Shown here is a 369-nucleotide sequence from Hypoxylon sp. CI-4A, a member of the family "Nuclear RNase P".
[Rfam]
RNA sequence: UGCCGCGCAAGCUGCUCCUCAUCGGUCAUAGAUUCUUCGGAGUUCAUACCGAAUUAACCCCGCUCAUGAGAAAUUCGGAGUAAUCUUCAUCACUACCUCAGUCGCCCGCCCAGUGUGGGAUCGACAGGUCUGCCCGUGAGGGUCUGGCGUGAUGGUUUUCACACGUUUGCAAUAUUGGCAUCAGAGAAGCAGGGCCUUUCACCUCGUGCAUACCCGCAAGGGGAAGACGGGGGAGUUGGGUUCCUAUGGGAGAGCCGUUGCGAAGAUUGUGUGGAGAACACUUGAGUGCGAUACGCAGCGUGGGAUGCCGCAUUUCUCUUUCUAGGGAAAUGAGCUUCUACAAUUCGAUUCCGAUUACUCUGAUGGGGA
Dot-bracket structure: (.((...((...[..[....((.((..........((((((.....).))))).........)).))........(((((....((((...........................................((((....))))..(((((............))))).....((.((((............(((................................................)))........)))).)).)))).............................]..].((((((..............................)))))).......))))).......))...)).)